[Rfam]
RNA sequence: GCCCGGCUCCGGGUUUCGGCCCGUACGGUCCGGCCGGCCAUGCUGGCAGGGUUGGGGCCGGGGCCGAGCCCGCGG
Numbered sequence: 001g002c003c004c005g006g007c008u009c010c011g012g013g014u015u016u017c018g019g020c021c022c023g024u025a026c027g028g029u030c031c032g033g034c035c036g037g038c039c040a041u042g043c044u045g046g047c048a049g050g051g052u053u054g055g056g057g058c059c060g061g062g063g064c065c066g067a068g069c070c071c072g073c074g075g
Base pairs, nucleotide, nucleotide: 005070006069007068008067009066012064014062015061017060018059019058020057021056022055026054027053028052029051030050031049033047034046035045036044037043038042
mir-762 microRNA precursor family: a 75-nucleotide RNA from Sapajus apella. Gene Ontology terms of the family: miRNA-mediated post-transcriptional gene silencing, response to oxygen levels and sensory perception of sound. The organism belongs to Sapajus, within Eukaryota.